The family of this 97-nucleotide RNA is "skipping-rope RNA". The family's consensus secondary structure is taken from published work. It is annotated as a small RNA. The sequence is in the family's curated seed alignment.

RNA sequence: GUUAUUUGAGGUGGAAAAUUUCGUGGCAUCCACACGCCGCUGGUACCGACAGGGGAAACCCGAGAGAUGCAGGAGAACGCCACGCCUGCCAAAUAAC
Number, nucleotide and partner (000 for none) at each position: 001g097002u096003u095004a094005u093006u092007u091008g090009a000010g000011g033012u032013g031014g030015a029016a000017a000018a000019u000020u000021u000022c000023g083024u082025g081026g080027c079028a000029u015030c014031c013032a012033c011034a000035c064036g000037c055038c054039g000040c000041u000042g000043g000044u000045a000046c000047c000048g000049a000050c000051a000052g000053g000054g038055g037056a000057a000058a000059c000060c000061c000062g000063a000064g035065a000066g000067a000068u000069g089070c088071a087072g086073g085074a000075g000076a000077a000078c000079g027080c026081c025082a024083c023084g000085c073086c072087u071088g070089c069090c008091a007092a006093a005094u004095a003096a002097c001